[Rfam]
RNA sequence: GUGUUUCUUCUGAUUUCCUUACGGAAAAUAUGCAAGUUGCCCGUUGGGUGGCCCAGUUGGUAUAAACACAGCCUUCGUGGUAUGAGGUGGUUUUUAGUACGUAGGCGUUGUAGAACAAAUUCUCUCUUUAUCUGAGAUCUGCAACGAAUCGUGCAUGCGAGUUAUCGAUGCGUAUCGGAAACGAUCGAAUUCGUAUCUAUGAAGAUUUCCCAUUCUCGCGUC
Numbered sequence: 001g002u003g004u005u006u007c008u009u010c011u012g013a014u015u016u017c018c019u020u021a022c023g024g025a026a027a028a029u030a031u032g033c034a035a036g037u038u039g040c041c042c043g044u045u046g047g048g049u050g051g052c053c054c055a056g057u058u059g060g061u062a063u064a065a066a067c068a069c070a071g072c073c074u075u076c077g078u079g080g081u082a083u084g085a086g087g088u089g090g091u092u093u094u095u096a097g098u099a100c101g102u103a104g105g106c107g108u109u110g111u112a113g114a115a116c117a118a119a120u121u122c123u124c125u126c127u128u129u130a131u132c133u134g135a136g137a138u139c140u141g142c143a144a145c146g147a148a149u150c151g152u153g154c155a156u157g158c159g160a161g162u163u164a165u166c167g168a169u170g171c172g173u174a175u176c177g178g179a180a181a182c183g184a185u186c187g188a189a190u191u192c193g194u195a196u197c198u199a200u201g202a203a204g205a206u207u208u209c210c211c212a213u214u215c216u217c218g219c220g221u222c
Base pairs, nucleotide, nucleotide: 038062039061040060041059068221069220071219072218084217085216086215087214089211090210097154098153099152100151101150106146107145108144109143110142111141112140113139114138156195157194158193159192160191161190162189163188

The family of this 222-nucleotide sequence from Drosophila gunungcola is "R2 RNA element". NCBI's taxonomy places the organism under Eukaryota, Endopterygota, Acalyptratae, Ephydroidea, elegans subgroup (in: flies). It scores 70 bits against the family's covariance model. Rfam links the family to the GO term regulation of reverse transcription. For this family Rfam cites "Secondary structure models of the 3' untranslated regions of diverse R2 RNAs" (Ruschak et al., RNA, 2004).